Description: Y RNA: a 102-nucleotide RNA sequence from Microcebus murinus. From the family's description: Y RNAs are components of the Ro ribonucleoprotein particle (Ro RNP), in association with Ro60 and La proteins. The Y RNAs and Ro60 and La proteins are well conserved, but the function of the Ro RNP is not known. The match comes from Rfam's covariance-model search (67 bits).

RNA sequence: GGCUGGUCCCAGUGCAGUGGUGUUUACAGCUAACUGAUCACGACUAGUUACAGAUGCCUUUGUUCCUUCUCCUCUCCCACUGCUUCACUUGACUAGACUUAA
Numbered sequence: 001g002g003c004u005g006g007u008c009c010c011a012g013u014g015c016a017g018u019g020g021u022g023u024u025u026a027c028a029g030c031u032a033a034c035u036g037a038u039c040a041c042g043a044c045u046a047g048u049u050a051c052a053g054a055u056g057c058c059u060u061u062g063u064u065c066c067u068u069c070u071c072c073u074c075u076c077c078c079a080c081u082g083c084u085u086c087a088c089u090u091g092a093c094u095a096g097a098c099u100u101a102a
Stems, first nucleotide, its partner, number of pairs: 001098001003096006011089001014086001016081005022076001028064003032060002
Dot-bracket structure: (.((((((..(..(.(((((.(.....(((.((.........................)).)))...........))))))....)..).)))))).)....